[Rfam]
RNA sequence: CGGUUUCGGAGUAUAUCCCACACACAUACCGACACAGUUUCUGGGUGCCGCACUGCGGUUGGGAGCUGGGGUAUGUGGAGGUAAAAC
Number, nucleotide and partner (000 for none) at each position: 001c000002g000003g000004u000005u000006u000007c000008g000009g000010a000011g000012u000013a000014u000015a000016u000017c000018c000019c000020a000021c000022a000023c077024a076025c075026a074027u073028a072029c071030c070031g000032a000033c000034a000035c068036a067037g066038u065039u064040u063041c061042u000043g000044g000045g000046u000047g059048c058049c057050g056051c055052a000053c000054u000055g051056c050057g049058g048059u047060u000061g041062g000063g040064a039065g038066c037067u036068g035069g000070g030071g029072u028073a027074u026075g025076u024077g023078g000079a000080g000081g000082u000083a000084a000085a000086a000087c000